[Rfam]
RNA: mir-1302 microRNA precursor family
Organism: Ailuropoda melanoleuca
RNA sequence: UAUUCAGUAUAAAUAUAUCCCAUGCAAAAUUUGGGACAUACUUAUACUUUAA
Number, nucleotide and partner (000 for none) at each position: 001u000002a000003u000004u000005c000006a048007g047008u046009a045010u044011a043012a042013a000014u040015a039016u038017a000018u036019c035020c034021c033022a031023u000024g000025c000026a000027a000028a000029a000030u000031u022032u000033g021034g020035g019036a018037c000038a016039u015040a014041c000042u012043u011044a010045u009046a008047c007048u006049u000050u000051a000052a000